The family of this 73-nucleotide RNA from Capsicum annuum is "tRNA".
[Rfam]
RNA sequence: ACCUACUUGACUUAUUUGUUAGAGUAUCACUUUCAUAUGGUGAGAGUCAUUGGUUAAAAUCCAAUAGUAGAUA
Numbered sequence: 001a002c003c004u005a006c007u008u009g010a011c012u013u014a015u016u017u018g019u020u021a022g023a024g025u026a027u028c029a030c031u032u033u034c035a036u037a038u039g040g041u042g043a044g045a046g047u048c049a050u051u052g053g054u055u056a057a058a059a060u061c062c063a064a065u066a067g068u069a070g071a072u073a
Stems, first nucleotide, its partner, number of pairs: 001072001003070005010025004027043005049065005
Dot-bracket structure: (.(((((..((((........)))).(((((.......))))).....(((((.......)))))))))).).

Rfam links the family to the GO term triplet codon-amino acid adaptor activity. Taxonomically the source falls in Capsicum (Eukaryota, Viridiplantae, Embryophyta, Capsiceae). Rfam classes the family as a transfer RNA. It scores 50 bits against the family's covariance model. The base pairs follow the family's consensus structure, which is taken from published work. Transfer RNA (tRNA) molecules are approximately 80 nucleotides in length.